Notes: The record is a 122-nucleotide sequence, which matches "c-di-GMP-II-GAG riboswitch aptamer" in Rfam. Gene Ontology terms of the family: regulation of gene expression and cyclic-di-GMP binding. It is one of the family's seed sequences.
[Rfam]
RNA sequence: CCGCCACUGGGACGCAACGAUCCCCGCGGUCACUUCUUCGGUCGCCAUGGUGUCAGCGGUGCCGUAACGGCGCGCGCACCAGACCGCGGGGCUAGCGAGUGGCGAGACCGGCCCGGAAACCC
Numbered sequence: 001c002c003g004c005c006a007c008u009g010g011g012a013c014g015c016a017a018c019g020a021u022c023c024c025c026g027c028g029g030u031c032a033c034u035u036c037u038u039c040g041g042u043c044g045c046c047a048u049g050g051u052g053u054c055a056g057c058g059g060u061g062c063c064g065u066a067a068c069g070g071c072g073c074g075c076g077c078a079c080c081a082g083a084c085c086g087c088g089g090g091g092c093u094a095g096c097g098a099g100u101g102g103c104g105a106g107a108c109c110g111g112c113c114c115g116g117a118a119a120c121c122c
Stems, first nucleotide, its partner, number of pairs: 003121001007116005013097003022091008040109002042105005
Dot-bracket structure: ..(...(((((.(((......((((((((..........[[[[[[[.....................................))))))))...)))...]]]]]..]]..)))))....).